This 129-nucleotide sequence from Burkholderia sp. WAC0059 belongs to the Rfam family "Burkholderia sRNA 39". The match comes from Rfam's covariance-model search (128 bits). A reference for the family is Stubben et al. (2014), "Differential expression of small RNAs from Burkholderia thailandensis in response to varying environmental and stress conditions", BMC Genomics. Taxonomically the source falls in Burkholderia (Bacteria, Pseudomonadati, Pseudomonadota, Burkholderiales). Rfam's curators write: Trans-encoded, exhibits differential expression profiles dependent on growth phase and cell stimuli, such as antbiotics and serum. May function in bacterial metabolism and adaptation to the host. It is annotated as a small RNA.
RNA sequence: GUAUUGUGGGGACCACCUCCAUGAGAGGUGUUAGGCAUUAGCCAGUCAUGACGGCUUGCACGCGAGAACUGGACCCCUUCGUGCAAACAUUCAAGCCAGCCGUCACAGCCAGCAAGGCCUCUUUUUCGU
Numbered sequence: 001g002u003a004u005u006g007u008g009g010g011g012a013c014c015a016c017c018u019c020c021a022u023g024a025g026a027g028g029u030g031u032u033a034g035g036c037a038u039u040a041g042c043c044a045g046u047c048a049u050g051a052c053g054g055c056u057u058g059c060a061c062g063c064g065a066g067a068a069c070u071g072g073a074c075c076c077c078u079u080c081g082u083g084c085a086a087a088c089a090u091u092c093a094a095g096c097c098a099g100c101c102g103u104c105a106c107a108g109c110c111a112g113c114a115a116g117g118c119c120u121c122u123u124u125u126u127c128g129u
Stems, first nucleotide, its partner, number of pairs: 006121001008119002011113001014030006034043003045109002049105008057085004063081004